[Rfam]
A member of the RNA family "c-di-GMP-I riboswitch aptamer" from Curvibacter sp. AEP1-3, 85 nucleotides long.
The match comes from Rfam's covariance-model search (72 bits).
RNA sequence: AGUGCUUAUGGGUAAACCCGUUGAAAGACGGGGACACAAAGCCACCGACCUACAGCAGCAAUGCCAUGGUAGCGGGGCCGCCAAU
Numbered sequence: 001a002g003u004g005c006u007u008a009u010g011g012g013u014a015a016a017c018c019c020g021u022u023g024a025a026a027g028a029c030g031g032g033g034a035c036a037c038a039a040a041g042c043c044a045c046c047g048a049c050c051u052a053c054a055g056c057a058g059c060a061a062u063g064c065c066a067u068g069g070u071a072g073c074g075g076g077g078c079c080g081c082c083a084a085u
Base pairs, nucleotide, nucleotide: 012037013036017032018031019030020029021028022027041078042077043076045075046074047073048070049069050068055064056063057062

The family's consensus secondary structure is taken from published work.